MIR7504 microRNA precursor family: a 123-nucleotide sequence from Gossypium klotzschianum. Its family is annotated with RISC complex and miRNA-mediated post-transcriptional gene silencing in the Gene Ontology. The base pairs follow the family's consensus structure, which was predicted with RNAalifold. The family has 8 seed sequences and 7,343 matches in Rfam 15.1.
RNA sequence: AAUAGGAGCAUGAAAAAUUAGAUUUUUCCUCCUGAUUUUUAACAUUUUUAGUUGGAUUUGAAUUUUUUCUAGAGGAAAAAGUUGAAAAUUAGGAGAAAAAAUUUUAUUUAUCAUACUCCUAUU
Numbered sequence: 001a002a003u004a005g006g007a008g009c010a011u012g013a014a015a016a017a018u019u020a021g022a023u024u025u026u027u028c029c030u031c032c033u034g035a036u037u038u039u040u041a042a043c044a045u046u047u048u049u050a051g052u053u054g055g056a057u058u059u060g061a062a063u064u065u066u067u068u069c070u071a072g073a074g075g076a077a078a079a080a081g082u083u084g085a086a087a088a089u090u091a092g093g094a095g096a097a098a099a100a101a102u103u104u105u106a107u108u109u110a111u112c113a114u115a116c117u118c119c120u121a122u123u
Stems, first nucleotide, its partner, number of pairs: 001123008010114004015109004020104008029095011041083002045079004